[Rfam]
RNA sequence: AAGUGUUACACAGCUCUUUUAAAAUUUGCCUAGCCCGUUUUCCGGUUCUCACUGGAAGACACCC
Numbered sequence: 001a002a003g004u005g006u007u008a009c010a011c012a013g014c015u016c017u018u019u020u021a022a023a024a025u026u027u028g029c030c031u032a033g034c035c036c037g038u039u040u041u042c043c044g045g046u047u048c049u050c051a052c053u054g055g056a057a058g059a060c061a062c063c064c
Stems, first nucleotide, its partner, number of pairs: 037060010
This 64-nucleotide RNA sequence from Prolemur simus belongs to the Rfam family "U7 small nuclear RNA". The base pairs follow the family's consensus structure, which was predicted with PFOLD. On this family, see Spycher et al., Nucleic Acids Res 1994: "3' end processing of mouse histone pre-mRNA: evidence for additional base-pairing between U7 snRNA and pre-mRNA". The organism belongs to Prolemur, within Eukaryota.